[Rfam]
RNA sequence: CGGCAACGAGCGGGAGAGAGCCAGCGUGCUGGCCGCCGAAGGAGCAACCGCCCCGGAAACUCUCAGGCACCCGGACCGUUCCUUGCAC
Dot-bracket structure: .....(.((((((......((((......)))).(((((..(((...((.....))...))))).))).......)))))).).....
Numbered sequence: 001c002g003g004c005a006a007c008g009a010g011c012g013g014g015a016g017a018g019a020g021c022c023a024g025c026g027u028g029c030u031g032g033c034c035g036c037c038g039a040a041g042g043a044g045c046a047a048c049c050g051c052c053c054c055g056g057a058a059a060c061u062c063u064c065a066g067g068c069a070c071c072c073g074g075a076c077c078g079u080u081c082c083u084u085g086c087a088c
Stems, first nucleotide, its partner, number of pairs: 006083001008081006020033004035068003038064002042062003048056002
Overview: This 88-nucleotide RNA sequence from Microvirga guangxiensis belongs to the Rfam family "Glycine riboswitch aptamer". Lineage of the source: Bacteria > Pseudomonadati > Alphaproteobacteria > Hyphomicrobiales > Microvirga. The base pairs follow the family's consensus structure.